[Rfam]
RNA sequence: AAUAAAUAUGGCAAUUAACCGUAGACAGUAGGUGCUGUAAUGGCGUAACGUUUAUCAACCUACCGAGGGUUCCGAUAUGAUUAUUUGGUCUCUCUGUGUUUGCGGUGAGACCUUAUUUAUUUCUUAA
Numbered sequence: 001a002a003u004a005a006a007u008a009u010g011g012c013a014a015u016u017a018a019c020c021g022u023a024g025a026c027a028g029u030a031g032g033u034g035c036u037g038u039a040a041u042g043g044c045g046u047a048a049c050g051u052u053u054a055u056c057a058a059c060c061u062a063c064c065g066a067g068g069g070u071u072c073c074g075a076u077a078u079g080a081u082u083a084u085u086u087g088g089u090c091u092c093u094c095u096g097u098g099u100u101u102g103c104g105g106u107g108a109g110a111c112c113u114u115a116u117u118u119a120u121u122u123c124u125u126a127a
Stems, first nucleotide, its partner, number of pairs: 028063006034044003087112006094105003

Ribosomal protein L10 leader: a 127-nucleotide sequence from Clostridium oryzae. It scores 71 bits against the family's covariance model.